[Rfam]
RNA sequence: CCACUUGGGGGUGAGGAGUUCUACUCCUAUAUCCUCACGGGUCUCGGCCCGACUACAAUCCGUUGGUAACUUCGAUUGUCACUCGUGUUGAACCAAUCUCAUUCACUGAAUUGCAGUCCCAGAUUAUCAGCUUCGAGC
Numbered sequence: 001c002c003a004c005u006u007g008g009g010g011g012u013g014a015g016g017a018g019u020u021c022u023a024c025u026c027c028u029a030u031a032u033c034c035u036c037a038c039g040g041g042u043c044u045c046g047g048c049c050c051g052a053c054u055a056c057a058a059u060c061c062g063u064u065g066g067u068a069a070c071u072u073c074g075a076u077u078g079u080c081a082c083u084c085g086u087g088u089u090g091a092a093c094c095a096a097u098c099u100c101a102u103u104c105a106c107u108g109a110a111u112u113g114c115a116g117u118c119c120c121a122g123a124u125u126a127u128c129a130g131c132u133u134c135g136a137g138c
Stems, first nucleotide, its partner, number of pairs: 004137005087107001089105004
A member of the RNA family "Small nucleolar RNA Z247" from Digitaria exilis, 138 nucleotides long. Gene Ontology terms of the family: RNA processing and nucleolus. The organism belongs to Digitaria, within Eukaryota. The family has 8 seed sequences and 7,071 matches in Rfam 15.1.